[Rfam]
RNA sequence: AAAUAAAUAGGUGAUGGAGCUCACCUUUAAAUAUUACAUAUAAUGUAAUUGAUGGCUCCUACUUCUUU
Numbered sequence: 001a002a003a004u005a006a007a008u009a010g011g012u013g014a015u016g017g018a019g020c021u022c023a024c025c026u027u028u029a030a031a032u033a034u035u036a037c038a039u040a041u042a043a044u045g046u047a048a049u050u051g052a053u054g055g056c057u058c059c060u061a062c063u064u065c066u067u068u
Base pairs, nucleotide, nucleotide: 010025011024012023013022016059017058018057019056020055021054033049034048035047036046037045038044039043

Fluoride riboswitch aptamer (crcB RNA motif): a 68-nucleotide RNA sequence from Senegalia massiliensis.
NCBI's taxonomy places the organism under Bacteria, Bacillati, Eubacteriales, Clostridiaceae, Senegalia.